[Rfam]
RNA sequence: CUGAAGGUCGCGUCCGGGUCAAUUGCGGACUGCAACACCCGAUCUCGCUCUACACGCCUCCGGAGAUGGAGGCCGAGGAGGGAGAGCGCGUCACCGUCAG
Numbered sequence: 001c002u003g004a005a006g007g008u009c010g011c012g013u014c015c016g017g018g019u020c021a022a023u024u025g026c027g028g029a030c031u032g033c034a035a036c037a038c039c040c041g042a043u044c045u046c047g048c049u050c051u052a053c054a055c056g057c058c059u060c061c062g063g064a065g066a067u068g069g070a071g072g073c074c075g076a077g078g079a080g081g082g083a084g085a086g087c088g089c090g091u092c093a094c095c096g097u098c099a100g
Base pairs, nucleotide, nucleotide: 001100002099003098004097009090010089011088012087013086015041016040017039018038023035024034025033026032027031043085044084045083046082048080049079050078051077053075
Dot-bracket structure: ((((....(((((.((((....(((((...)))))..)))).((((.((((.(.....................).)))).)))))))))......))))
Shown here is a 100-nucleotide RNA sequence from Haloprofundus sp. MHR1, a member of the family "L4-Archaeoglobi ribosomal protein leades". For this family Rfam cites "Discovery of 20 novel ribosomal leader candidates in bacteria and archaea" (Eckert and Weinberg, BMC Microbiol, 2020). Rfam classes the family as a cis-regulatory leader.